[Rfam]
RNA sequence: GAAACGACCACCCCGCACCACCCUGGUGGAUCAGACGGGGACCGUCGGCCGGCAACGGCCGACUGCA
Number, nucleotide and partner (000 for none) at each position: 001g000002a000003a000004a000005c000006g000007a000008c000009c000010a000011c040012c039013c038014c037015g036016c000017a000018c029019c028020a027021c026022c000023c000024u000025g000026g021027u020028g019029g018030a000031u000032c000033a000034g000035a000036c015037g014038g013039g012040g011041a000042c000043c000044g063045u062046c061047g060048g059049c058050c057051g056052g000053c000054a000055a000056c051057g050058g049059c048060c047061g046062a045063c044064u000065g000066c000067a000